The record is a 45-nucleotide sequence from Lentisphaera araneosa, which matches "Acido-Lenti-1 RNA" in Rfam. The match comes from Rfam's covariance-model search (44 bits). It is annotated as a small RNA. The family's consensus secondary structure is taken from published work.

RNA sequence: CGUGUGGCUCACGCCACACGCUAUUUUAUGUCGGGCUGAAGCCCU
Numbered sequence: 001c002g003u004g005u006g007g008c009u010c011a012c013g014c015c016a017c018a019c020g021c022u023a024u025u026u027u028a029u030g031u032c033g034g035g036c037u038g039a040a041g042c043c044c045u
Base pairs, nucleotide, nucleotide: 001020002019003018004017005016006015007014008013033044034043035042036041